[Rfam]
RNA sequence: AAAGUCCCGUCGGUGCAAUUAGACGGUUCAGCACCGCAGACCGUGCCAACUGCGUCGCCGCGAGGCGGGGUGGGGAGCAGGCAUGGAGUCGAACCGGCAGGUCGCAAUGAACACAUGAACCACAUAAAUGAGCCUCGAAAAAGUACUCCCGGCAGCCGAGCCCCUCAAUUGUGGGCGAAGGCCGCAGAACUGGAACCCGGACCAACCGUCGAGGGUUCUGGCAAUGGACCGGCGGGGUCUGCGUGGG
Numbered sequence: 001a002a003a004g005u006c007c008c009g010u011c012g013g014u015g016c017a018a019u020u021a022g023a024c025g026g027u028u029c030a031g032c033a034c035c036g037c038a039g040a041c042c043g044u045g046c047c048a049a050c051u052g053c054g055u056c057g058c059c060g061c062g063a064g065g066c067g068g069g070g071u072g073g074g075g076a077g078c079a080g081g082c083a084u085g086g087a088g089u090c091g092a093a094c095c096g097g098c099a100g101g102u103c104g105c106a107a108u109g110a111a112c113a114c115a116u117g118a119a120c121c122a123c124a125u126a127a128a129u130g131a132g133c134c135u136c137g138a139a140a141a142a143g144u145a146c147u148c149c150c151g152g153c154a155g156c157c158g159a160g161c162c163c164c165u166c167a168a169u170u171g172u173g174g175g176c177g178a179a180g181g182c183c184g185c186a187g188a189a190c191u192g193g194a195a196c197c198c199g200g201a202c203c204a205a206c207c208g209u210c211g212a213g214g215g216u217u218c219u220g221g222c223a224a225u226g227g228a229c230c231g232g233c234g235g236g237g238u239c240u241g242c243g244u245g246g247g
Stems, first nucleotide, its partner, number of pairs: 012035005019026001020212001022210001037085002042081001044079002046074002049071001053070001055068005129241001130239001132238006149232004155182003160176004188225001190221009
Group II catalytic intron D1-D4-6: a 247-nucleotide RNA from Chthoniobacter flavus. Group II introns are found in rRNA, tRNA and mRNA of organelles in fungi, plants and protists, and also in mRNA in bacteria. A reference for the family is Bonen and Vogel (2001), "The ins and outs of group II introns", Trends Genet.